[Rfam]
RNA sequence: CAAACUGUGGUUCGCAAUCCUCCCACAAUAAAAAACUAAGGAAUU
Numbered sequence: 001c002a003a004a005c006u007g008u009g010g011u012u013c014g015c016a017a018u019c020c021u022c023c024c025a026c027a028a029u030a031a032a033a034a035a036c037u038a039a040g041g042a043a044u045u
Stems, first nucleotide, its partner, number of pairs: 006027005016037001

Rfam assigns this 45-nucleotide RNA from Neisseria elongata to the family "PreQ1 (pre queuosine) riboswitch aptamer". Rfam links the family to the GO term queuosine biosynthetic process. The source organism's lineage runs through Bacteria, Neisseriaceae, Neisseria, Neisseria elongata and Neisseria elongata subsp. glycolytica. For this family Rfam cites "Analysis of a preQ1-I riboswitch in effector-free and bound states reveals a metabolite-programmed nucleobase-stacking spine that controls gene regulation" (Schroeder et al., Nucleic Acids Res, 2020). Rfam describes the family as follows. This family is a bacterial riboswitch that binds to the metabolite preQ1, an intermediate in the biosynthesis of the modified nucleoside queuosine from GTP. One example of this riboswitch is located in the leader of the Bacillus subtilis ykvJKLM (queCDEF) operon which encodes four genes necessary for queuosine production. Pairs were carried over by alignment from the consensus structure. The match comes from Rfam's covariance-model search (53 bits).